Background
The record is a 127-nucleotide RNA sequence from Pipistrellus kuhlii, which matches "Small Cajal body specific RNA 24" in Rfam. The literature on the family includes a 2002 paper in EMBO J by Darzacq et al., "Cajal body-specific small nuclear RNAs: a novel class of 2'-O-methylation and pseudouridylation guide RNAs". NCBI's taxonomy places the organism under Eukaryota, Metazoa, Tetrapoda, Theria, Pipistrellus. It is annotated as a small Cajal body RNA.

[Rfam]
Nucleotides: 127
Base pairs, nucleotide, nucleotide: 002060003059004058005057006056007055008054009053010052011051021046022045023044024043025041027039071121072120073119074118075117076116090101091100092099093098
Number, partner (000 for none) and nucleotide at each position: 001000u002060g003059g004058a005057c006056a007055u008054u009053u010052a011051c012000u013000u014000u015000u016000u017000a018000u019000u020000c021046a022045g023044u024043u025041u026000c027039u028000u029000c030000u031000u032000a033000a034000a035000g036000u037000a038000u039027a040000a041025a042000a043024a044023a045022c046021u047000c048000u049000u050000u051011g052010u053009a054008a055007a056006u057005g058004u059003c060002c061000u062000u063000g064000a065000a066000a067000a068000a069000u070000a071121u072120a073119g074118u075117a076116g077000u078000u079000u080000u081000c082000u083000u084000u085000u086000c087000a088000c089000c090101c091100u092099u093098u094000g095000u096000a097000a098093a099092a100091a101090g102000g103000g104000u105000a106000g107000a108000u109000c110000a111000u112000u113000c114000c115000a116076c117075u118074a119073c120072u121071g122000a123000c124000a125000u126000a127000u